The family of this 197-nucleotide sequence from Streptomyces tirandamycinicus is "Actinobacteria sRNA Ms_IGR-5". On this family, see Li et al., RNA 2013: "Identification of small RNAs in Mycobacterium smegmatis using heterologous Hfq".
RNA sequence: CCUCGAGAAGGGAGGUGAUUCGGAACAUGAAGGCAUUCCGGACGCGAGAGGUGGCUGCGGGCUAGGUCCCGUCGUCGCACCUUCGUGCACCUCGGCAGGGCCUCUGCCGAAAUCCAAGCAGUCACCGACCCGCGGGCUCGCCGGUACGUCCGGCCGGCUUCCUCCUCGGAGGGACCCGAGCCCGCGGGUUUCCGCGC
Numbered sequence: 001c002c003u004c005g006a007g008a009a010g011g012g013a014g015g016u017g018a019u020u021c022g023g024a025a026c027a028u029g030a031a032g033g034c035a036u037u038c039c040g041g042a043c044g045c046g047a048g049a050g051g052u053g054g055c056u057g058c059g060g061g062c063u064a065g066g067u068c069c070c071g072u073c074g075u076c077g078c079a080c081c082u083u084c085g086u087g088c089a090c091c092u093c094g095g096c097a098g099g100g101c102c103u104c105u106g107c108c109g110a111a112a113u114c115c116a117a118g119c120a121g122u123c124a125c126c127g128a129c130c131c132g133c134g135g136g137c138u139c140g141c142c143g144g145u146a147c148g149u150c151c152g153g154c155c156g157g158c159u160u161c162c163u164c165c166u167c168g169g170a171g172g173g174a175c176c177c178g179a180g181c182c183c184g185c186g187g188g189u190u191u192c193c194g195c196g197c
Stems, first nucleotide, its partner, number of pairs: 015058003019054001061108001063106004068100003072095003127190012140158006